Rfam assigns this 93-nucleotide RNA from Nocardioides gansuensis to the family "Glycine riboswitch aptamer". Taxonomically the source falls in Nocardioides (Bacteria, Bacillati, Actinomycetes, Nocardioidaceae). The base pairs follow the family's consensus structure. Clan: Glycine riboswitch clan. Rfam links the family to the GO term glycine biosynthetic process.

RNA sequence: UCAUCCCACGCGGGAGAGUCCUCGAGCGAGUCGGGGCGCCGAAGGGGCAAUUCCUCCCCGGAACCUCUCAGGCACCAGGACCGCGUGGAGCAG
Number, nucleotide and partner (000 for none) at each position: 001u000002c000003a000004u000005c000006c088007c087008a086009c085010g084011c083012g082013g081014g000015a000016g000017a000018g000019u000020c036021c035022u034023c033024g000025a000026g000027c000028g000029a000030g000031u000032c000033g023034g022035g021036g020037c000038g073039c072040c071041g069042a068043a000044g000045g067046g066047g065048c000049a000050a000051u061052u060053c000054c000055u000056c000057c000058c000059c000060g052061g051062a000063a000064c000065c047066u046067c045068u042069c041070a000071g040072g039073c038074a000075c000076c000077a000078g000079g000080a000081c013082c012083g011084c010085g009086u008087g007088g006089a000090g000091c000092a000093g000